[Rfam]
RNA: Bacterial RNase P class A
Organism: Histidinibacterium lentulum
RNA sequence: GCGGAUGGCCGGAUGGCCGCGGCGGCGGAGGUUUCGGCCAAGGCCGUCGAGGAAAGUCCGGACUCCAAGAAGGCACGGUGCCGGGUAACGCCCGGCGGGGGCAACCCUAGGGAAAGCGCCACAGAGAACAGACCGCCCGGGCUGCGCCCCGGGCAAGGGUGAAACGGUGGGGUAAGAGCCCACCACGGAGCUGGCAACAGCGCCGGUCAUGGCAAGCCCCACCGGGAGCAAUGCCGAAUAGGGGUCUCGCGCCGGAAACGGCAGGGGAGCCUGCCCCGAGAGGCCCGGGUAGGCAGCUGGAGGCGGCGCGGCAACGCGUCGUCCAGAGGAAUGGCCAUCUCCCGCGCCUCGGCGCGGCAGACAGAAUCCGGCUUACAGGCCAUCCGCGCGU
Numbered sequence: 001g002c003g004g005a006u007g008g009c010c011g012g013a014u015g016g017c018c019g020c021g022g023c024g025g026c027g028g029a030g031g032u033u034u035c036g037g038c039c040a041a042g043g044c045c046g047u048c049g050a051g052g053a054a055a056g057u058c059c060g061g062a063c064u065c066c067a068a069g070a071a072g073g074c075a076c077g078g079u080g081c082c083g084g085g086u087a088a089c090g091c092c093c094g095g096c097g098g099g100g101g102c103a104a105c106c107c108u109a110g111g112g113a114a115a116g117c118g119c120c121a122c123a124g125a126g127a128a129c130a131g132a133c134c135g136c137c138c139g140g141g142c143u144g145c146g147c148c149c150c151g152g153g154c155a156a157g158g159g160u161g162a163a164a165c166g167g168u169g170g171g172g173u174a175a176g177a178g179c180c181c182a183c184c185a186c187g188g189a190g191c192u193g194g195c196a197a198c199a200g201c202g203c204c205g206g207u208c209a210u211g212g213c214a215a216g217c218c219c220c221a222c223c224g225g226g227a228g229c230a231a232u233g234c235c236g237a238a239u240a241g242g243g244g245u246c247u248c249g250c251g252c253c254g255g256a257a258a259c260g261g262c263a264g265g266g267g268a269g270c271c272u273g274c275c276c277c278g279a280g281a282g283g284c285c286c287g288g289g290u291a292g293g294c295a296g297c298u299g300g301a302g303g304c305g306g307c308g309c310g311g312c313a314a315c316g317c318g319u320c321g322u323c324c325a326g327a328g329g330a331a332u333g334g335c336c337a338u339c340u341c342c343c344g345c346g347c348c349u350c351g352g353c354g355c356g357g358c359a360g361a362c363a364g365a366a367u368c369c370g371g372c373u374u375a376c377a378g379g380c381c382a383u384c385c386g387c388g389c390g391u
Stems, first nucleotide, its partner, number of pairs: 001387010011376001012339007020049007054374003058371005063228004071272004076224005081095005096110001097108004111219002116217002118213003133158002135154007166184006185207001186205003190201004232295004242286006264277004303322008
Dot-bracket structure: ((((((((((((((((((.(((((((................)))))))....[[[.[[[[[((((....[[[[.((((((((((.....)))))(((((....)))).)((...(((((............(((((((((......)))))))..)).......((((((.......))))))((((.((((....)))).))).)...)))..)))))))))))))...((((......((((((................((((.]]]].))))...)))))).....)))).......((((((((....))))))))..........)))))))...........................]]]]]]]].).))))))))))....